[Rfam]
RNA sequence: UCACGUUCAUCUCAUCUCCGGCGAGGCGCAAUUCGACUCAAGCCAUGGAAUGGUGACCUGAG
Numbered sequence: 001u002c003a004c005g006u007u008c009a010u011c012u013c014a015u016c017u018c019c020g021g022c023g024a025g026g027c028g029c030a031a032u033u034c035g036a037c038u039c040a041a042g043c044c045a046u047g048g049a050a051u052g053g054u055g056a057c058c059u060g061a062g
Stems, first nucleotide, its partner, number of pairs: 004052005010026004037062004042057001043055001

A member of the RNA family "Glutamine-II riboswitch aptamer", 62 nucleotides long.
Its family is annotated with glutamine binding in the Gene Ontology.